[Rfam]
RNA sequence: UGUCUCCUCCACCUCCUCCUUUGGUGUGGAUUGUGCGCCGCCACAUUCAAGUGGCGGCGUUUUUUU
Numbered sequence: 001u002g003u004c005u006c007c008u009c010c011a012c013c014u015c016c017u018c019c020u021u022u023g024g025u026g027u028g029g030a031u032u033g034u035g036c037g038c039c040g041c042c043a044c045a046u047u048c049a050a051g052u053g054g055c056g057g058c059g060u061u062u063u064u065u066u
Stems, first nucleotide, its partner, number of pairs: 008030005013023001036059008
Overview:
A member of the RNA family "Betaproteobacteria toxic small RNA" from Hydrogenophilus thermoluteolus, 66 nucleotides long. Overexpression in amino aid rich medium attenuates growth, suggesting role in repressing amino acid intake and metabolism. Taxonomically the source falls in Hydrogenophilus (Bacteria, Pseudomonadota, Hydrogenophilia, Hydrogenophilaceae). The match comes from Rfam's covariance-model search (55 bits).